[Rfam]
RNA sequence: CAGGAGGAUACCUAGGGUUCCGCUUUGCAUCGGCAAAGGUCUGGUCCGAGCGGUAUCAACGCCGGCCCCGGCGUACACCGUGGGGAAAAAAGCCCCUGGCGGC
Numbered sequence: 001c002a003g004g005a006g007g008a009u010a011c012c013u014a015g016g017g018u019u020c021c022g023c024u025u026u027g028c029a030u031c032g033g034c035a036a037a038g039g040u041c042u043g044g045u046c047c048g049a050g051c052g053g054u055a056u057c058a059a060c061g062c063c064g065g066c067c068c069c070g071g072c073g074u075a076c077a078c079c080g081u082g083g084g085g086a087a088a089a090a091a092g093c094c095c096c097u098g099g100c101g102g103c
Stems, first nucleotide, its partner, number of pairs: 007057006015047002020044002022041001023038006059074006076098001078101001082096003
Background: Rfam assigns this 103-nucleotide RNA sequence from Melghirimyces profundicolus to the family "Guanidine-I riboswitch aptamer". NCBI's taxonomy places the organism under Bacteria, Bacillati, Bacillota, Caryophanales, Melghirimyces.